A member of the RNA family "T-box leader" from Pontibacillus yanchengensis, 220 nucleotides long. Taxonomically the source falls in Pontibacillus yanchengensis (Bacteria, Bacilli, Caryophanales, Pontibacillus). Gene Ontology term of the family: tRNA binding. The match comes from Rfam's covariance-model search (138 bits). The base pairs follow the family's consensus structure, which is taken from published work. Rfam 15.1 lists 19,395 matches to the family in 1,923 species.

RNA sequence: CAAACAGCAUUGAUAAAGGAAUAGUAGUAAAGGAACAAGAGCUAUAGAGAGAUAGCGGUUGGUGAAAGCUAUCCUUGUACUUUAUGAACUCGCCUUUGAGCUGCAAAUCUGAAAGUGCAGUAGGAUUUGCCGUUUCUCCGCGUUAAGGAGCUUGAGUGAGUGUACAUGACACUAACCUGGGUGGUACCGCGGGUGGAUAUAUAAGCCUCUCGUCCCUAUU
Numbered sequence: 001c002a003a004a005c006a007g008c009a010u011u012g013a014u015a016a017a018g019g020a021a022u023a024g025u026a027g028u029a030a031a032g033g034a035a036c037a038a039g040a041g042c043u044a045u046a047g048a049g050a051g052a053u054a055g056c057g058g059u060u061g062g063u064g065a066a067a068g069c070u071a072u073c074c075u076u077g078u079a080c081u082u083u084a085u086g087a088a089c090u091c092g093c094c095u096u097u098g099a100g101c102u103g104c105a106a107a108u109c110u111g112a113a114a115g116u117g118c119a120g121u122a123g124g125a126u127u128u129g130c131c132g133u134u135u136c137u138c139c140g141c142g143u144u145a146a147g148g149a150g151c152u153u154g155a156g157u158g159a160g161u162g163u164a165c166a167u168g169a170c171a172c173u174a175a176c177c178u179g180g181g182u183g184g185u186a187c188c189g190c191g192g193g194u195g196g197a198u199a200u201a202u203a204a205g206c207c208u209c210u211c212g213u214c215c216c217u218a219u220u
Base pairs, nucleotide, nucleotide: 007101008100016096017095018094019093027085028084029083030082031081032080040075041074051073052072053071054070055069056068104129105128106127107126108125109124110123131142132141133140159173160172161171162170163169179216180215181214189213190212191211192210193209